The family of this 384-nucleotide sequence is "Bacterial RNase P class A".
Pairs were carried over by alignment from the consensus structure, which is taken from published work.
A search with the family's covariance model found it, with a score of 224 bits.
[Rfam]
RNA sequence: UCGGUUUUGCGGAUGAUCGCUCUGAUAAUAUUCUAAAUAUUUGAUAUCAGGGAGGAAAGUCCGGACUCCAUAUGGCAGCGCAAGGGGUAACGCCCCUCUAGGGUAACCUAAGGAACAGUGGAACAGAGAGAAUGUCCGGGGCAUUGAGCCUGACACCGGGAACGGGAGGGUCAGGGGAGCCGCCGGAGUGAAAACAGCCAAACUCUGCGCGGAGCAAGAUCAAAUAGGGUGACACUAGUAGGGCGGCCAGCCCGUAGUCACCGGGUAAGAUCGCUUGAGGGCGACAGUAAUGUCGCUCCUAGAGGAAUGAUCAUCCAAAUCUAUCGGGACAAUUAUGGGACCAGGUAGAUAGGACAGAAUCCGGCUUAAAGCAAAACCGAUAUC
Numbered sequence: 001u002c003g004g005u006u007u008u009g010c011g012g013a014u015g016a017u018c019g020c021u022c023u024g025a026u027a028a029u030a031u032u033c034u035a036a037a038u039a040u041u042u043g044a045u046a047u048c049a050g051g052g053a054g055g056a057a058a059g060u061c062c063g064g065a066c067u068c069c070a071u072a073u074g075g076c077a078g079c080g081c082a083a084g085g086g087g088u089a090a091c092g093c094c095c096c097u098c099u100a101g102g103g104u105a106a107c108c109u110a111a112g113g114a115a116c117a118g119u120g121g122a123a124c125a126g127a128g129a130g131a132a133u134g135u136c137c138g139g140g141g142c143a144u145u146g147a148g149c150c151u152g153a154c155a156c157c158g159g160g161a162a163c164g165g166g167a168g169g170g171u172c173a174g175g176g177g178a179g180c181c182g183c184c185g186g187a188g189u190g191a192a193a194a195c196a197g198c199c200a201a202a203c204u205c206u207g208c209g210c211g212g213a214g215c216a217a218g219a220u221c222a223a224a225u226a227g228g229g230u231g232a233c234a235c236u237a238g239u240a241g242g243g244c245g246g247c248c249a250g251c252c253c254g255u256a257g258u259c260a261c262c263g264g265g266u267a268a269g270a271u272c273g274c275u276u277g278a279g280g281g282c283g284a285c286a287g288u289a290a291u292g293u294c295g296c297u298c299c300u301a302g303a304g305g306a307a308u309g310a311u312c313a314u315c316c317a318a319a320u321c322u323a324u325c326g327g328g329a330c331a332a333u334u335a336u337g338g339g340a341c342c343a344g345g346u347a348g349a350u351a352g353g354a355c356a357g358a359a360u361c362c363g364g365c366u367u368a369a370a371g372c373a374a375a376a377c378c379g380a381u382a383u384c
Stems, first nucleotide, its partner, number of pairs: 001380010012315007020052008057367003061364005066214004073249004078210005083097005098112001099110004113205002118203002120199002218272004228262006241253004279298008